[Rfam]
RNA sequence: CACUGUUACAGCUUUAAGAAUUUGUCUAGAGGACUUUCUGUUUUUUACUGGAAAGCUCCCCA
Numbered sequence: 001c002a003c004u005g006u007u008a009c010a011g012c013u014u015u016a017a018g019a020a021u022u023u024g025u026c027u028a029g030a031g032g033a034c035u036u037u038c039u040g041u042u043u044u045u046u047a048c049u050g051g052a053a054a055g056c057u058c059c060c061c062a
Base pairs, nucleotide, nucleotide: 031059032058033057034055035054036053037052038051040048041047
Description:
This 62-nucleotide RNA from Callithrix jacchus belongs to the Rfam family "U7 small nuclear RNA". The literature on the family includes a 2007 paper in Genomics Proteomics Bioinformatics by Marz et al., "U7 snRNAs: a computational survey". It scores 38 bits against the family's covariance model. Lineage of the source: Eukaryota > Eutheria > Primates > Callithrix > Callithrix.